[Rfam]
RNA sequence: UUUAUAAAGUUUGGAGAAAAAAGUCUAUGAGGUUUAUCCAAGGUGUGAUUAUUGCUAGUUGAAAACUUUAUCCAAUACCCCGACUUGACGACUUGACACAUAGUCGGAGAUGGCAAUUUUGAUGGUCUCUAAGGAGA
Numbered sequence: 001u002u003u004a005u006a007a008a009g010u011u012u013g014g015a016g017a018a019a020a021a022a023g024u025c026u027a028u029g030a031g032g033u034u035u036a037u038c039c040a041a042g043g044u045g046u047g048a049u050u051a052u053u054g055c056u057a058g059u060u061g062a063a064a065a066c067u068u069u070a071u072c073c074a075a076u077a078c079c080c081c082g083a084c085u086u087g088a089c090g091a092c093u094u095g096a097c098a099c100a101u102a103g104u105c106g107g108a109g110a111u112g113g114c115a116a117u118u119u120u121g122a123u124g125g126u127c128u129c130u131a132a133g134g135a136g137a
Stems, first nucleotide, its partner, number of pairs: 017049001020046001023044003031039002082114001084112001085110002089106005126137004
Dot-bracket structure: ................(..(..(((.....((.....))..))).)..)................................(.(((..(((((........)))))..)).).)...........((((....))))